Shown here is a 67-nucleotide RNA from Ictalurus punctatus, a member of the family "mir-27 microRNA precursor family".
The organism belongs to Ictalurus, within Eukaryota.
It is one of the family's seed sequences.
Its family is annotated with RISC complex and miRNA-mediated post-transcriptional gene silencing in the Gene Ontology.
RNA sequence: GCAGAGCUUGGCUGAUUGGUGAACGUGCAUGGCUUGUGUUUUUGUUCACAGUGGCUAAGUUCUUCAC
Dot-bracket structure: ...((((((((((.....(((((((.................)))))))...)))))))))).....
Numbered sequence: 001g002c003a004g005a006g007c008u009u010g011g012c013u014g015a016u017u018g019g020u021g022a023a024c025g026u027g028c029a030u031g032g033c034u035u036g037u038g039u040u041u042u043u044g045u046u047c048a049c050a051g052u053g054g055c056u057a058a059g060u061u062c063u064u065c066a067c
Stems, first nucleotide, its partner, number of pairs: 004062010019049007